[Rfam]
RNA sequence: GGCCCAUACCGCGGGAGCCCGCUGCAGCCUCGUGCGCCUCUGGCGUUCGACGCUGCAGGGCUGAGAGGGCGUUGGAGCCGACCGCUUGACCUGAUCCGGUUAGUACCGGCGUAGGGAAGGAUUCCUUCAUGGAC
Number, nucleotide and partner (000 for none) at each position: 001g000002g000003c000004c000005c000006a122007u121008a000009c119010c000011g085012c084013g083014g082015g000016a000017g061018c060019c059020c058021g000022c000023u000024g000025c000026a000027g000028c000029c000030u000031c000032g000033u000034g000035c000036g000037c000038c000039u000040c000041u000042g000043g000044c000045g000046u000047u000048c000049g000050a000051c000052g000053c000054u000055g000056c000057a000058g020059g019060g018061c017062u000063g000064a000065g000066a000067g000068g079069g078070c077071g000072u000073u000074g000075g000076a000077g070078c069079c068080g000081a000082c014083c013084g012085c011086u000087u000088g000089a000090c115091c114092u113093g112094a000095u000096c109097c108098g107099g106100u000101u000102a000103g000104u000105a000106c099107c098108g097109g096110c000111g000112u093113a092114g091115g090116g000117a000118a000119g009120g000121a007122u006123u000124c000125c000126u000127u000128c000129a000130u000131g000132g000133a000134c000

Rfam assigns this 134-nucleotide sequence to the family "TPP riboswitch aptamer (THI element)". Pairs were carried over by alignment from the consensus structure, which is taken from published work.